RNA sequence: AUAGUCAUAGUGGGGGCCACAGCAGAAGCAUUCAUAUUGCGACCCCUGUCAGGUAAUACCUGCAAAUUCUGCU
Numbered sequence: 001a002u003a004g005u006c007a008u009a010g011u012g013g014g015g016g017c018c019a020c021a022g023c024a025g026a027a028g029c030a031u032u033c034a035u036a037u038u039g040c041g042a043c044c045c046c047u048g049u050c051a052g053g054u055a056a057u058a059c060c061u062g063c064a065a066a067u068u069c070u071g072c073u
Base pairs, nucleotide, nucleotide: 013046014045015044016043018041021073022072023071024070025069026068027067028040029039030038050062051061052060053059054058
Description: Shown here is a 73-nucleotide RNA sequence from Alligator sinensis, a member of the family "Mammalian CPEB3 ribozyme". Pairs were carried over by alignment from the consensus structure, which is taken from published work. Taxonomically the source falls in Alligator (Eukaryota, Eumetazoa, Tetrapoda, Archosauria). Rfam links the family to the GO term RNA nuclease activity.